Shown here is a 162-nucleotide sequence from Modicisalibacter xianhensis, a member of the family "TPP riboswitch aptamer (THI element)".
Pairs were carried over by alignment from the consensus structure, which is taken from published work.
Vitamin B(1) in its active form thiamin pyrophosphate (TPP) is an essential coenzyme that is synthesised by coupling of pyrimidine and thiazole moieties in bacteria.
The organism belongs to Modicisalibacter, within Bacteria.
RNA sequence: GAACGCUUGACGGGGUGCCGGUGGAACCGGCUGAGAUGGUCGAUGAGCUUGCCCAUGCAUGCUCCAGGGCCGAUCCCGCAGAACCUGAUCCGGGUGAUUUCGUUGGCCUCCUUACGAGGCCGAGGGAAGUGAACCGGCGUAGGGAUCAAGCCUGGGCGGUAC
Numbered sequence: 001g002a003a004c005g006c007u008u009g010a011c012g013g014g015g016u017g018c019c020g021g022u023g024g025a026a027c028c029g030g031c032u033g034a035g036a037u038g039g040u041c042g043a044u045g046a047g048c049u050u051g052c053c054c055a056u057g058c059a060u061g062c063u064c065c066a067g068g069g070c071c072g073a074u075c076c077c078g079c080a081g082a083a084c085c086u087g088a089u090c091c092g093g094g095u096g097a098u099u100u101c102g103u104u105g106g107c108c109u110c111c112u113u114a115c116g117a118g119g120c121c122g123a124g125g126g127a128a129g130u131g132a133a134c135c136g137g138c139g140u141a142g143g144g145a146u147c148a149a150g151c152c153u154g155g156g157c158g159g160u161a162c
Stems, first nucleotide, its partner, number of pairs: 006150005011078004016072001017031005038071004084143004090137004